RNA: mir-156 microRNA precursor family
RNA sequence: UUGACAGAAGAGAGUGAGCACACAGCGGCGACCGGCACAAUGGUGUGUGCUGUUCUGUUGCGUGCUCACUCUCUUUCUGUCAU
Numbered sequence: 001u002u003g004a005c006a007g008a009a010g011a012g013a014g015u016g017a018g019c020a021c022a023c024a025g026c027g028g029c030g031a032c033c034g035g036c037a038c039a040a041u042g043g044u045g046u047g048u049g050c051u052g053u054u055c056u057g058u059u060g061c062g063u064g065c066u067c068a069c070u071c072u073c074u075u076u077c078u079g080u081c082a083u
Base pairs, nucleotide, nucleotide: 002082003081004080005079006078007077008076009075010073011072012071013070014069015068016067017066018065019064020063021062023060024059025058026057027056028055